[Rfam]
A member of the RNA family "mir-221 microRNA precursor family" from Danio rerio, 82 nucleotides long. Taxonomically the source falls in Danio (Eukaryota, Ostariophysi, Cypriniphysae, Danionidae). A reference for the family is Soares et al. (2009), "Parallel DNA pyrosequencing unveils new zebrafish microRNAs", BMC Genomics.

RNA sequence: CUCAUGAGAUGCUCAGUAGUCAGUGUAGAUCCUGUGUCACAAUCAGCAGCUACAUCUGGCUACUGGGUCUCUGAUGGCAUUU
Dot-bracket structure: ............((((((.(((((((((...((((..........)))))))))).))).))))))................